[Rfam]
RNA sequence: CAUCCCCAUGAUGAAUUUGUUCAUGAUUUUAACGUUAAAAGUAGACUGAAAUUCAUUGAUGAUAAAUUGAUUCUGAGGGAUG
Number, nucleotide and partner (000 for none) at each position: 001c082002a081003u080004c079005c078006c077007c000008a000009u000010g000011a000012u000013g000014a000015a000016u000017u000018u000019g000020u000021u000022c000023a000024u000025g000026a000027u000028u000029u000030u000031a000032a000033c000034g000035u000036u000037a000038a000039a000040a000041g000042u000043a000044g000045a000046c000047u000048g000049a000050a000051a000052u000053u000054c000055a000056u000057u000058g000059a000060u000061g000062a000063u000064a000065a000066a000067u000068u000069g000070a000071u000072u000073c000074u000075g000076a000077g006078g005079g004080a003081u002082g001
A member of the RNA family "Small nucleolar RNA R21" from Phtheirospermum japonicum, 82 nucleotides long. Rfam classes the family as a C/D-box small nucleolar RNA. A reference for the family is Barneche et al. (2001), "Identification of 66 box C/D snoRNAs in Arabidopsis thaliana: extensive gene duplications generated multiple isoforms predicting new ribosomal RNA 2'-O-methylation sites", J Mol Biol. NCBI's taxonomy places the organism under Eukaryota, Streptophyta, Magnoliopsida, Pentapetalae, Phtheirospermum.